[Rfam]
RNA sequence: UUGUUAGUAUAAGUAUGUUCUAUGCAGUAUUAAGGACAUAUUUAUACUAAAA
Numbered sequence: 001u002u003g004u005u006a007g008u009a010u011a012a013g014u015a016u017g018u019u020c021u022a023u024g025c026a027g028u029a030u031u032a033a034g035g036a037c038a039u040a041u042u043u044a045u046a047c048u049a050a051a052a
Stems, first nucleotide, its partner, number of pairs: 006048007014040003018036004022031001
RNA: mir-1302 microRNA precursor family